RNA sequence: GUUGCAGGUAUGGAGACAUGGUUCCCAAGACCAUCGCUGGGAAGAUUUUCGGCUCGAUCUGCUCUUUGAGUGGGGUGCUGGUAAUUGCCCUGCCUGUCCCCGUCAUCGUCUCCAAC
Numbered sequence: 001g002u003u004g005c006a007g008g009u010a011u012g013g014a015g016a017c018a019u020g021g022u023u024c025c026c027a028a029g030a031c032c033a034u035c036g037c038u039g040g041g042a043a044g045a046u047u048u049u050c051g052g053c054u055c056g057a058u059c060u061g062c063u064c065u066u067u068g069a070g071u072g073g074g075g076u077g078c079u080g081g082u083a084a085u086u087g088c089c090c091u092g093c094c095u096g097u098c099c100c101c102g103u104c105a106u107c108g109u110c111u112c113c114a115a116c
Stems, first nucleotide, its partner, number of pairs: 001116002004113001007112001010109004015104003020099002023096001039079002042076001051065002